Shown here is a 45-nucleotide sequence from Ovis aries, a member of the family "Histone 3' UTR stem-loop".
The organism belongs to Ovis, within Eukaryota.
The family has 50 seed sequences and 44,596 matches in Rfam 15.1.
Rfam's curators write: The mRNAs of metazoan histone genes lack a poly-A tail. 3' end processing occurs at a site between a highly conserved stem-loop (modelled by this family) and a purine rich region around 20 nts downstream (the histone downstream element, or HDE).
[Rfam]
RNA sequence: CCAAAGGCUCUUUUCAGAGCCACCCACGACUACACUUGAAAGCAG
Numbered sequence: 001c002c003a004a005a006g007g008c009u010c011u012u013u014u015c016a017g018a019g020c021c022a023c024c025c026a027c028g029a030c031u032a033c034a035c036u037u038g039a040a041a042g043c044a045g
Stems, first nucleotide, its partner, number of pairs: 006021006